U11 spliceosomal RNA: a 129-nucleotide sequence from Geotrypetes seraphini.
RNA sequence: ACUAAGGGCUUCUGCUGUGUUUAGCACGCGGGUUGAUCCGAUUUUCAGAUCUUUCUGCGUGGAAUCAACAUCGAGAGAUUUCGGAAGCAUAAUUUUUGCAGCUGGGGCUGUCAGUGAUCUCAUGUCCGG
Numbered sequence: 001a002c003u004a005a006g007g008g009c010u011u012c013u014g015c016u017g018u019g020u021u022u023a024g025c026a027c028g029c030g031g032g033u034u035g036a037u038c039c040g041a042u043u044u045u046c047a048g049a050u051c052u053u054u055c056u057g058c059g060u061g062g063a064a065u066c067a068a069c070a071u072c073g074a075g076a077g078a079u080u081u082c083g084g085a086a087g088c089a090u091a092a093u094u095u096u097u098g099c100a101g102c103u104g105g106g107g108c109u110g111u112c113a114g115u116g117a118u119c120u121c122a123u124g125u126c127c128g129g
Base pairs, nucleotide, nucleotide: 008088009087010086011085012084013026014025015024016023017022027059028058029057030056031055032054035051036050037049038048060083061082062081063080064079065078066077112129114127116126117125118124
The family's RNA type in Rfam is spliceosomal small nuclear RNA.
Its Rfam clan is "U1 clan".